The family of this 105-nucleotide RNA from Sporosarcina sp. Marseille-Q4063 is "SAM riboswitch aptamer (S box leader)".
RNA sequence: AACUUAUCAAGAGAAGCUAAGGGACUGGCCCGUUGAAGCUUCAGCAACCUCUGCAUUGCAGGAAGGUGCUAAUUCCAGCAAGGGUAACCCCUUGGAAGAUAAGAG
Numbered sequence: 001a002a003c004u005u006a007u008c009a010a011g012a013g014a015a016g017c018u019a020a021g022g023g024a025c026u027g028g029c030c031c032g033u034u035g036a037a038g039c040u041u042c043a044g045c046a047a048c049c050u051c052u053g054c055a056u057u058g059c060a061g062g063a064a065g066g067u068g069c070u071a072a073u074u075c076c077a078g079c080a081a082g083g084g085u086a087a088c089c090c091c092u093u094g095g096a097a098g099a100u101a102a103g104a105g
Base pairs, nucleotide, nucleotide: 003103004102005101006100007099008098013042014041015040016039017038021031022030023029025078026077027076028075043070044069045068046067048066049065050062051061052060053059074097079094080093081092082091083090084089